[Rfam]
About this RNA
This 134-nucleotide sequence from Terrapene triunguis belongs to the Rfam family "Small nucleolar RNA SNORA20". ACA20 is a member of the H/ACA class of snoRNA that guide the sites of modification of uridines to pseudouridines. Rfam classes the family as an H/ACA-box small nucleolar RNA. Its family is annotated with RNA processing and nucleolus in the Gene Ontology. The family's consensus secondary structure was predicted with ILM.

RNA sequence: CUUCCCAUUUAUUUACUGCCAUGCAGUCUCAAUGCUAUGAGCAGUUAUACGCGUGGGAUAGAGUAUAAUAAGGCCAUUGUAAAUUUGUGAUGAAACAACCGAUGUUUCACCAUCCUUGCUAGGGCUGGACAUCU
Dot-bracket structure: ..((((((......(((((..((............))...))))).......))))))..........(.((.((...(((.....(((.((((((.......)))))).)))...)))..)).)).)......
Numbered sequence: 001c002u003u004c005c006c007a008u009u010u011a012u013u014u015a016c017u018g019c020c021a022u023g024c025a026g027u028c029u030c031a032a033u034g035c036u037a038u039g040a041g042c043a044g045u046u047a048u049a050c051g052c053g054u055g056g057g058a059u060a061g062a063g064u065a066u067a068a069u070a071a072g073g074c075c076a077u078u079g080u081a082a083a084u085u086u087g088u089g090a091u092g093a094a095a096c097a098a099c100c101g102a103u104g105u106u107u108c109a110c111c112a113u114c115c116u117u118g119c120u121a122g123g124g125c126u127g128g129a130c131a132u133c134u
Stems, first nucleotide, its partner, number of pairs: 003058006015045005022037002069128001071126002074123002079119003087113003091109006